Shown here is a 90-nucleotide RNA sequence from Eumeta japonica, a member of the family "mir-282 microRNA precursor family".
On this family, see Li et al., BMC Genomics 2009: "Direct sequencing and expression analysis of a large number of miRNAs in Aedes aegypti and a multi-species survey of novel mosquito miRNAs".
The match comes from Rfam's covariance-model search (73 bits).
Gene Ontology terms of the family: miRNA-mediated post-transcriptional gene silencing and RISC complex.
The family has 21 seed sequences and 136 matches in Rfam 15.1.
NCBI's taxonomy places the organism under Eukaryota, Panarthropoda, Aparaglossata, Heteroneura, Eumeta.
RNA sequence: AGGAGACUCGGACCUAGCCUCUCCUUGGCUUUGUCUGUGUGAACACUACAAUCAGACAUAGCCUGAUAGAGGUUACGUUUUGUCUCUUUC
Numbered sequence: 001a002g003g004a005g006a007c008u009c010g011g012a013c014c015u016a017g018c019c020u021c022u023c024c025u026u027g028g029c030u031u032u033g034u035c036u037g038u039g040u041g042a043a044c045a046c047u048a049c050a051a052u053c054a055g056a057c058a059u060a061g062c063c064u065g066a067u068a069g070a071g072g073u074u075a076c077g078u079u080u081u082g083u084c085u086c087u088u089u090c
Stems, first nucleotide, its partner, number of pairs: 012078002015075006027063004032058005